[Rfam]
RNA sequence: CCAUGAGGACGACCUCCAUGAGGGUGAUCUCCAUGGGGACGACCUC
Numbered sequence: 001c002c003a004u005g006a007g008g009a010c011g012a013c014c015u016c017c018a019u020g021a022g023g024g025u026g027a028u029c030u031c032c033a034u035g036g037g038g039a040c041g042a043c044c045u046c
Base pairs, nucleotide, nucleotide: 002020003019004018005016006015007014008013035046036045037044038043
Shown here is a 46-nucleotide RNA from Pluvianellus socialis, a member of the family "Guanidine-II riboswitch aptamer (mini-ykkC)". Simpler in structure and has fewer highly conserved nucleotide positions than the ykkC-yxkD leader. It scores 33 bits against the family's covariance model.